[Rfam]
RNA sequence: UAUAGAUACGCUUGGUUUGUGGUUCCAAGCUAGUCUAAAUAGUUGCCGAGUUCGCAGCCAUUAAGUGCUCGGAUGAGUGGCGCUGUUUAUGAUGAACGUCCCAUAUGUA
Numbered sequence: 001u002a003u004a005g006a007u008a009c010g011c012u013u014g015g016u017u018u019g020u021g022g023u024u025c026c027a028a029g030c031u032a033g034u035c036u037a038a039a040u041a042g043u044u045g046c047c048g049a050g051u052u053c054g055c056a057g058c059c060a061u062u063a064a065g066u067g068c069u070c071g072g073a074u075g076a077g078u079g080g081c082g083c084u085g086u087u088u089a090u091g092a093u094g095a096a097c098g099u100c101c102c103a104u105a106u107g108u109a
Stems, first nucleotide, its partner, number of pairs: 010030006019104004033093003036089003045081004050074002056069003
RNA: RAGATH-11 RNA
Organism: Brachionus plicatilis